[Rfam]
Background: Rfam assigns this 88-nucleotide RNA sequence from Arabis nemorensis to the family "Small nucleolar RNA SNORD34". Taxonomically the source falls in Arabis (Eukaryota, Streptophyta, Pentapetalae, malvids). The base pairs follow the family's consensus structure, which was predicted with PFOLD. A reference for the family is Galardi et al. (2002), "Purified box C/D snoRNPs are able to reproduce site-specific 2'-O-methylation of target RNA in vitro", Mol Cell Biol. From the family's description: snoRNA U34 is found in intron 5 of the ribosomal protein L13a gene in humans.

RNA sequence: UAAGGCCUAUGAUGAUUCAAAUUUUGCCUACAUUGUUUGAGAAACCAGUGAUAUCAACAACUUUAACAUAAUUUAUUCUGAGUCUUUA
Number, nucleotide and partner (000 for none) at each position: 001u088002a087003a000004g085005g084006c000007c082008u000009a000010u000011g000012a000013u000014g000015a000016u000017u000018c000019a000020a000021a000022u000023u000024u000025u000026g000027c000028c000029u000030a000031c000032a000033u000034u000035g000036u000037u000038u000039g000040a000041g000042a000043a000044a000045c000046c000047a000048g000049u000050g000051a000052u000053a000054u000055c000056a000057a000058c000059a000060a000061c000062u000063u000064u000065a000066a000067c000068a000069u000070a000071a000072u000073u000074u000075a000076u000077u000078c000079u000080g000081a000082g007083u000084c005085u004086u000087u002088a001
The family is grouped with related families in Rfam's "SNORD34 clan".